[Rfam]
RNA sequence: UGACCAGGGGGCCGGGAUGCGUUGAUCGAAAGGAUCGACGUGACCUAGGAGUACAGGGAGUACUUCCAUCAUGGGCCGGGUCAGGCAAGCC
Numbered sequence: 001u002g003a004c005c006a007g008g009g010g011g012c013c014g015g016g017a018u019g020c021g022u023u024g025a026u027c028g029a030a031a032g033g034a035u036c037g038a039c040g041u042g043a044c045c046u047a048g049g050a051g052u053a054c055a056g057g058g059a060g061u062a063c064u065u066c067c068a069u070c071a072u073g074g075g076c077c078g079g080g081u082c083a084g085g086c087a088a089g090c091c
Base pairs, nucleotide, nucleotide: 001083002082003081004080005079010077011076012075013074014046015045016044018042020040021039022038023037024036025035026034027033048066049065050064051063052062053061054060
Dot-bracket structure: (((((....(((((((.(.((((((((.....)))))))).).))).(((((((.....))))))).......)))).)))))........
A member of the RNA family "ivy-DE RNA" from Pseudomonas coronafaciens, 91 nucleotides long. It is annotated as a cis-regulatory element. The source organism's lineage runs through Bacteria, Pseudomonadota, Gammaproteobacteria, Pseudomonas and Pseudomonas coronafaciens pv. oryzae.